Rfam assigns this 62-nucleotide sequence from Nostocales cyanobacterium HT-58-2 to the family "Nitrogen stress-induced RNA 1". It is annotated as a small RNA. Pairs were carried over by alignment from the consensus structure. The organism belongs to Nostocales, within Bacteria.

RNA sequence: UGGUAGAUGCACCCUGAUAACUGACUCCCCUGGUCGGCUACCAGCUACUAGGGGACUUUUUU
Numbered sequence: 001u002g003g004u005a006g007a008u009g010c011a012c013c014c015u016g017a018u019a020a021c022u023g024a025c026u027c028c029c030c031u032g033g034u035c036g037g038c039u040a041c042c043a044g045c046u047a048c049u050a051g052g053g054g055a056c057u058u059u060u061u062u
Stems, first nucleotide, its partner, number of pairs: 002013003027054008036045001